A member of the RNA family "RT-15 RNA" from Cupriavidus sp. WS, 191 nucleotides long. It is one of the family's seed sequences.
Nucleotides: 191
Stems, first nucleotide, its partner, number of pairs: 004042003012035010055184006061082002064079005087131004096126003101123002104117005134170002137167002140164006148157003
Number, partner (000 for none) and nucleotide at each position: 001000c002000a003000u004042c005041g006040c007000c008000u009000g010000u011000u012035g013034c014033c015032u016031g017030a018029c019028c020027g021026c022000u023000a024000c025000g026021g027020c028019g029018g030017u031016c032015a033014g034013g035012u036000c037000c038000g039000u040006g041005c042004g043000a044000u045000u046000u047000u048000u049000a050000u051000c052000u053000g054000g055184u056183c057182g058181u059180g060179c061082c062081g063000c064079u065078g066077g067076c068075c069000c070000c071000g072000u073000c074000a075068g076067g077066c078065c079064a080000c081062c082061g083000c084000c085000a086000c087131g088130c089129g090128c091000a092000a093000u094000g095000a096126g097125g098124a099000u100000a101123c102122c103000g104117c105116c106115g107114g108113g109000c110000a111000u112000g113108c114107c115106c116105g117104g118000g119000u120000c121000u122102g123101g124098u125097c126096c127000a128090g129089c130088g131087c132000a133000g134170u135169u136000u137167c138166c139000c140164c141163g142162c143161u144160g145159a146000u147000c148157g149156g150155c151000g152000a153000g154000a155150g156149c157148c158000u159145u160144c161143g162142g163141c164140g165000a166138g167137g168000c169135g170134a171000c172000g173000u174000a175000g176000a177000u178000a179060g180059c181058a182057c183056g184055a185000u186000g187000c188000g189000a190000c191000g